[Rfam]
A member of the RNA family "ALIL pseudoknot" from Pseudorhodobacter sp. PARRP1, 156 nucleotides long. Rfam 15.1 lists 2,146 matches to the family in 1,098 species. The family's consensus secondary structure is taken from published work. A search with the family's covariance model found it, with a score of 80 bits. For this family Rfam cites "Apical loop-internal loop RNA pseudoknots: a new type of stimulator of -1 translational frameshifting in bacteria" (Mazauric et al., J Biol Chem, 2008).
RNA sequence: AGCGUAUUUUGCCCAGGCCCCUUUCGCGGUUUGAAGACAAACCGCUGCCGGGCAGCGGGAGCUCGACCGCCCGUUCCGCAAAUGACUGCUUUCAUUGAAGAACAUCGCGAGAUGUAUGGGGUCGAGCCGAUCUGCCGGACACUGCAGUUCGCCCCG
Numbered sequence: 001a002g003c004g005u006a007u008u009u010u011g012c013c014c015a016g017g018c019c020c021c022u023u024u025c026g027c028g029g030u031u032u033g034a035a036g037a038c039a040a041a042c043c044g045c046u047g048c049c050g051g052g053c054a055g056c057g058g059g060a061g062c063u064c065g066a067c068c069g070c071c072c073g074u075u076c077c078g079c080a081a082a083u084g085a086c087u088g089c090u091u092u093c094a095u096u097g098a099a100g101a102a103c104a105u106c107g108c109g110a111g112a113u114g115u116a117u118g119g120g121g122u123c124g125a126g127c128c129g130a131u132c133u134g135c136c137g138g139a140c141a142c143u144g145c146a147g148u149u150c151g152c153c154c155c156g
Stems, first nucleotide, its partner, number of pairs: 016071003117156005128151002132147004137142001